[Rfam]
RNA sequence: UGACCUUUGUGACCGUUAUAAUGGGCAUUUAGAAUUGAAGUGCUCCUUAUUACGAUCAGAAGGGUCU
Numbered sequence: 001u002g003a004c005c006u007u008u009g010u011g012a013c014c015g016u017u018a019u020a021a022u023g024g025g026c027a028u029u030u031a032g033a034a035u036u037g038a039a040g041u042g043c044u045c046c047u048u049a050u051u052a053c054g055a056u057c058a059g060a061a062g063g064g065u066c067u
Stems, first nucleotide, its partner, number of pairs: 002066007010058003014054003018050004023045006
Shown here is a 67-nucleotide sequence from Lottia gigantea, a member of the family "mir-2001 microRNA precursor family". Rfam links the family to the GO terms RISC complex and miRNA-mediated post-transcriptional gene silencing. Lineage of the source: Eukaryota > Eumetazoa > Patellogastropoda > Lottiidae > Lottia. Pairs were carried over by alignment from the consensus structure, which was predicted with RNAalifold.